[Rfam]
RNA sequence: GGUGGGUCCGAAGGUAGCAAGUUUCUCAACUGAUCACAGUCUGUUACAGAUCUAACUCCUUUUUCUAUUCUAUCGCCCUUUCUCAUUACCGUACUUGACUAGUCUUUA
Numbered sequence: 001g002g003u004g005g006g007u008c009c010g011a012a013g014g015u016a017g018c019a020a021g022u023u024u025c026u027c028a029a030c031u032g033a034u035c036a037c038a039g040u041c042u043g044u045u046a047c048a049g050a051u052c053u054a055a056c057u058c059c060u061u062u063u064u065c066u067a068u069u070c071u072a073u074c075g076c077c078c079u080u081u082c083u084c085a086u087u088a089c090c091g092u093a094c095u096u097g098a099c100u101a102g103u104c105u106u107u108a
Base pairs, nucleotide, nucleotide: 001104002103003102005100006099007098008097010096011095014092015091016087017086020083021082039069043065
The record is a 108-nucleotide RNA from Aotus nancymaae, which matches "Y RNA" in Rfam. The match comes from Rfam's covariance-model search (41 bits). The literature on the family includes a 2007 paper in Theory Biosci by Mosig et al., "Evolution of the vertebrate Y RNA cluster". NCBI's taxonomy places the organism under Eukaryota, Euteleostomi, Simiiformes, Platyrrhini, Aotus. The base pairs follow the family's consensus structure, which is taken from published work. Rfam classes the family as a non-coding RNA gene.